[Rfam]
RNA: rpsB sRNA
RNA sequence: CACACACGGAAAUAGGGUAAUUGCGGGAGAAAUCCGUAAUUUUCCGCCGGUGGCAGGUUUUACUGCCUCAUUCCGUGGAGGUUCAACCGGAAAGGAUAAAGAAAUGG
Number, nucleotide and partner (000 for none) at each position: 001c080002a000003c078004a000005c077006a076007c075008g074009g073010a072011a071012a000013u000014a000015g000016g045017g044018u000019a000020a000021u000022u000023g000024c036025g035026g000027g034028a000029g000030a000031a000032a000033u000034c027035c025036g024037u000038a000039a000040u000041u000042u000043u000044c017045c016046g000047c000048c000049g000050g000051u000052g067053g066054c065055a064056g063057g000058u062059u000060u000061u000062a058063c056064u055065g054066c053067c052068u000069c000070a000071u011072u010073c009074c008075g007076u006077g005078g003079a000080g001081g000082u000083u000084c000085a000086a000087c000088c000089g000090g000091a000092a000093a000094g000095g000096a000097u000098a000099a000100a000101g000102a000103a000104a000105u000106g000107g000